[Rfam]
RNA sequence: UAUCCAUCCGGAGCGGCUGAGAGAUCUGGCUCGACGACGCCGCAGCAACCACCCCUCACCCCGUGGGACAAGGUGCUAACGCCAGAACCGAUGGGAG
Numbered sequence: 001u002a003u004c005c006a007u008c009c010g011g012a013g014c015g016g017c018u019g020a021g022a023g024a025u026c027u028g029g030c031u032c033g034a035c036g037a038c039g040c041c042g043c044a045g046c047a048a049c050c051a052c053c054c055c056u057c058a059c060c061c062c063g064u065g066g067g068a069c070a071a072g073g074u075g076c077u078a079a080c081g082c083c084a085g086a087a088c089c090g091a092u093g094g095g096a097g
Stems, first nucleotide, its partner, number of pairs: 001097001003095006013043005021032003026085004044077004049073002053067002081089001